[Rfam]
RNA: Nuclear RNase P
RNA sequence: UCCGGGGGAAGCUCACCGCCGAGGCCACCCACUGGGUGCGCGUCACCCGCUGCCCCGCCUCGGGGAAGGUCUGAGGGAAGGGCCACUCCGCGGCUCUAGCAGAGCCCCGCCCGCGAAGGGGCGGGUGAGCCACCAGCAAGGCGGGGGGCGCCGCGCCGGCCCUUCCAUGGCGGGCAGGAGAAGCCGAGCUGGGUCCCCCGGAUGGGGGGGGGUGGUUGCGUGGAUCAUCCGGGAACCCCCGGCGGAUGCUCACGGCCUCCGCGGCGCUUUGAGACAGACUCACGGCCGGCGAUCGUUGAGUCCAAUGGGUGAGGUGGGGCACGGCCCUACAACCCAAUUCAGACUACUCUCCCCCGGA
Dot-bracket structure: ((((..(((..((((((..(((((.........(((((.....))))).........)))))........[[[[[.....((((.......(((((.....)))))((((((......))))))(((((.(...............(((((((((........................................................................................................)))))))))........).)))))))))....................))))))(((((((...))))))).......]]]]].......)))..))))